[Rfam]
RNA sequence: UCUAUCGUAAGGUAGAAUCUGAAGGAAGCUGUAAGCGAACUCUUGGUCCGACGGACAGAAAUCACAUAUGAGGCUAGGUUCCGCUUGGUAAGUCUGCCAAAUAAGACAAAGCCGUAAAGUUGCCGUUUGUAGGAACCGAGUAAAUGUGGCGGAUAUAUGAGAGGAAAGAGCGUGCA
Numbered sequence: 001u002c003u004a005u006c007g008u009a010a011g012g013u014a015g016a017a018u019c020u021g022a023a024g025g026a027a028g029c030u031g032u033a034a035g036c037g038a039a040c041u042c043u044u045g046g047u048c049c050g051a052c053g054g055a056c057a058g059a060a061a062u063c064a065c066a067u068a069u070g071a072g073g074c075u076a077g078g079u080u081c082c083g084c085u086u087g088g089u090a091a092g093u094c095u096g097c098c099a100a101a102u103a104a105g106a107c108a109a110a111g112c113c114g115u116a117a118a119g120u121u122g123c124c125g126u127u128u129g130u131a132g133g134a135a136c137c138g139a140g141u142a143a144a145u146g147u148g149g150c151g152g153a154u155a156u157a158u159g160a161g162a163g164g165a166a167a168g169a170g171c172g173u174g175c176a
Base pairs, nucleotide, nucleotide: 001016002015003014004013005012006011030176031175032174035171036170040163041162042161043160044159045158046154047153048152049151050150062149063148064147065146066145067144073141074140075139077137083136086114087113088112089111092107093106094105095104
A member of the RNA family "Group II catalytic intron D1-D4-3", 176 nucleotides long. Rfam links the family to the GO term Group II intron splicing. From the family's description: Group II introns are found in rRNA, tRNA and mRNA of organelles in fungi, plants and protists, and also in mRNA in bacteria. Pairs were carried over by alignment from the consensus structure. It is one of the family's seed sequences.